[Rfam]
RNA sequence: AGCAGUUCUCGGGUGAUGCACCCCAGAAUCGGGCUCCCUCCUCUCUGGUUCCGGUAUGCGUCAACUGAGAACCACU
Numbered sequence: 001a002g003c004a005g006u007u008c009u010c011g012g013g014u015g016a017u018g019c020a021c022c023c024c025a026g027a028a029u030c031g032g033g034c035u036c037c038c039u040c041c042u043c044u045c046u047g048g049u050u051c052c053g054g055u056a057u058g059c060g061u062c063a064a065c066u067g068a069g070a071a072c073c074a075c076u
Stems, first nucleotide, its partner, number of pairs: 002075001005072008014063004019058002023054001026051008
A member of the RNA family "mir-9223 microRNA precursor family" from Myotis myotis, 76 nucleotides long. Its family is annotated with RISC complex and miRNA-mediated post-transcriptional gene silencing in the Gene Ontology. A search with the family's covariance model found it, with a score of 70 bits. Taxonomically the source falls in Myotis (Eukaryota, Gnathostomata, Amniota, Mammalia).